The family of this 76-nucleotide RNA sequence from Phyllostomus discolor is "Small nucleolar RNA ZL2".
For this family Rfam cites "Insights into snoRNA biogenesis and processing from PAR-CLIP of snoRNA core proteins and small RNA sequencing" (Kishore et al., Genome Biol, 2013).
By type it is a C/D-box small nucleolar RNA.
A search with the family's covariance model found it, with a score of 62 bits.
The base pairs follow the family's consensus structure, which was predicted with RNAfold.
RNA sequence: GGCCUCAAGUGAUGAACAAAUUGACCAGGGAAGACUGUGACCGAACUGGGACGUAUUCGUACUGUCUGACGGGGCG
Numbered sequence: 001g002g003c004c005u006c007a008a009g010u011g012a013u014g015a016a017c018a019a020a021u022u023g024a025c026c027a028g029g030g031a032a033g034a035c036u037g038u039g040a041c042c043g044a045a046c047u048g049g050g051a052c053g054u055a056u057u058c059g060u061a062c063u064g065u066c067u068g069a070c071g072g073g074g075c076g
Stems, first nucleotide, its partner, number of pairs: 002075005011066004019060001020057001022055002025050002028047002033042001